The record is a 136-nucleotide RNA sequence from Carassius auratus, which matches "Small nucleolar RNA SNORA13" in Rfam. ACA13 is a member of the H/ACA class of snoRNA that guide the sites of modification of uridines to pseudouridines. Gene Ontology terms of the family: nucleolus and RNA processing. Pairs were carried over by alignment from the consensus structure, which was predicted with CMfinder.
RNA sequence: CGCCUUUGUGUUGCCCGUUCAUUUCCCUUUAGAUGAAUGUGGUGUCAACUAAGGCGCACAAUAACUCUUGAAAUGGUCUAAUCUGUGAGAGAACACUCUAAUUGUUCCUCUUGCUCGUGCUGUGACAAGAACAGUG
Dot-bracket structure: .(((((..((.((((((((((((........)))))))).)))).))...)))))...........((((..(((((.....(.(..((..((...........))...))...).).)))))..)))).......
Numbered sequence: 001c002g003c004c005u006u007u008g009u010g011u012u013g014c015c016c017g018u019u020c021a022u023u024u025c026c027c028u029u030u031a032g033a034u035g036a037a038u039g040u041g042g043u044g045u046c047a048a049c050u051a052a053g054g055c056g057c058a059c060a061a062u063a064a065c066u067c068u069u070g071a072a073a074u075g076g077u078c079u080a081a082u083c084u085g086u087g088a089g090a091g092a093a094c095a096c097u098c099u100a101a102u103u104g105u106u107c108c109u110c111u112u113g114c115u116c117g118u119g120c121u122g123u124g125a126c127a128a129g130a131a132c133a134g135u136g
Stems, first nucleotide, its partner, number of pairs: 002055005009047002012044004016039008067129004073123005083117001085115001088111002092106002